[Rfam]
RNA sequence: GCCGGAAUGACCUUGAGUGGCCUUGGGUGCAGGCUUCAAACCUGUAGGGGAUUAGCGUCCCAGAGGUUCGAUUCCUCCUUUUCGGC
Numbered sequence: 001g002c003c004g005g006a007a008u009g010a011c012c013u014u015g016a017g018u019g020g021c022c023u024u025g026g027g028u029g030c031a032g033g034c035u036u037c038a039a040a041c042c043u044g045u046a047g048g049g050g051a052u053u054a055g056c057g058u059c060c061c062a063g064a065g066g067u068u069c070g071a072u073u074c075c076u077c078c079u080u081u082u083c084g085g086c
Base pairs, nucleotide, nucleotide: 001086002085003084004083005082006081007080009078012027013026014025015024016023017022028046029045030044031043032042033041048061049060050059051058052057063077064076065075066074
Annotation:
Selenocysteine transfer RNA: an 86-nucleotide sequence from Micromonas pusilla. It scores 72 bits against the family's covariance model. Pairs were carried over by alignment from the consensus structure, which is taken from published work. Clan: tRNA clan. The source organism's lineage runs through Eukaryota, Viridiplantae, Chlorophyta, Micromonas and Micromonas pusilla.